[Rfam]
RNA sequence: AAACCGUCCUCUAAGUUUUGCAAAUGUAGCAGUUUUGGCCCCCCAAGGCCAAUUUUUGGUAAAAAAAAAUAAAAAAUAUAACACAUGGCACCUCACUUAGGGUGCCACGUCAGCGUAGACCGAGUCAAAAUUGACCUUGGGGGCCAAAACUGCCACAUAUGCAAAACUUAUGGAGCGGUUU
Numbered sequence: 001a002a003a004c005c006g007u008c009c010u011c012u013a014a015g016u017u018u019u020g021c022a023a024a025u026g027u028a029g030c031a032g033u034u035u036u037g038g039c040c041c042c043c044c045a046a047g048g049c050c051a052a053u054u055u056u057u058g059g060u061a062a063a064a065a066a067a068a069a070u071a072a073a074a075a076a077u078a079u080a081a082c083a084c085a086u087g088g089c090a091c092c093u094c095a096c097u098u099a100g101g102g103u104g105c106c107a108c109g110u111c112a113g114c115g116u117a118g119a120c121c122g123a124g125u126c127a128a129a130a131u132u133g134a135c136c137u138u139g140g141g142g143g144c145c146a147a148a149a150c151u152g153c154c155a156c157a158u159a160u161g162c163a164a165a166a167c168u169u170a171u172g173g174a175g176c177g178g179u180u181u
Stems, first nucleotide, its partner, number of pairs: 001181002004178004012170011024158004029153014044139003083110002086107007
Rfam assigns this 181-nucleotide RNA from Medicago truncatula to the family "MIR2619 microRNA precursor family". Its family is annotated with RISC complex and miRNA-mediated post-transcriptional gene silencing in the Gene Ontology. NCBI's taxonomy places the organism under Eukaryota, Streptophyta, eudicotyledons, Pentapetalae, Medicago.